[Rfam]
RNA sequence: CAGCAUCUGUUGACAGACCUGGAGCAAACACCCAUUGCUUUCCUGGUUCUUGGUGAGAUGCCGCAGGAACAGGUUCCUUGCGCUUUCUACCUGCCUGACCUUGUGGCAGUCUGGAUUGAAUAAAGGAACACAAAC
Numbered sequence: 001c002a003g004c005a006u007c008u009g010u011u012g013a014c015a016g017a018c019c020u021g022g023a024g025c026a027a028a029c030a031c032c033c034a035u036u037g038c039u040u041u042c043c044u045g046g047u048u049c050u051u052g053g054u055g056a057g058a059u060g061c062c063g064c065a066g067g068a069a070c071a072g073g074u075u076c077c078u079u080g081c082g083c084u085u086u087c088u089a090c091c092u093g094c095c096u097g098a099c100c101u102u103g104u105g106g107c108a109g110u111c112u113g114g115a116u117u118g119a120a121u122a123a124a125g126g127a128a129c130a131c132a133a134a135c
Base pairs, nucleotide, nucleotide: 003061004060005059006058007057008056011052012051016048017047018046019045022040023039024038025037026036027035075127076126077125078124079123083118086115087114088113089112091109092108093107094106095105

This 135-nucleotide sequence from Penelope pileata belongs to the Rfam family "Small nucleolar RNA SNORA31". The family's RNA type in Rfam is H/ACA-box small nucleolar RNA. The match comes from Rfam's covariance-model search (61 bits). The family's consensus secondary structure was predicted with RNAalifold. NCBI's taxonomy places the organism under Eukaryota, Metazoa, Tetrapoda, Sauria, Penelope. ACA31 (SNORA31) belongs to the H/ACA class of snoRNAs which are thought to guide the sites of modification of uridines to pseudouridines. ACA31 is predicted to guide the pseudouridylation of U3713 in 28S rRNA and U218 in 18S rRNA. This family includes the mouse homologue snoMBI-161.